RNA sequence: GUCCACCGUCCAUUCACUCGGAUCGUCCGGCACGUACCUGCCGGUGAAGGAGCAAUUU
Numbered sequence: 001g002u003c004c005a006c007c008g009u010c011c012a013u014u015c016a017c018u019c020g021g022a023u024c025g026u027c028c029g030g031c032a033c034g035u036a037c038c039u040g041c042c043g044g045u046g047a048a049g050g051a052g053c054a055a056u057u058u
Base pairs, nucleotide, nucleotide: 010050011049013048014047015046016045027044028043029042030041031040032039